[Rfam]
RNA: Mycobacterium sRNA Ms_AS-5
RNA sequence: GUCCGGAUACUGGCCGGUGAAAAUCGUUGGGCGGCUGGGCACACA
Numbered sequence: 001g002u003c004c005g006g007a008u009a010c011u012g013g014c015c016g017g018u019g020a021a022a023a024u025c026g027u028u029g030g031g032c033g034g035c036u037g038g039g040c041a042c043a044c045a
Stems, first nucleotide, its partner, number of pairs: 012032001014030005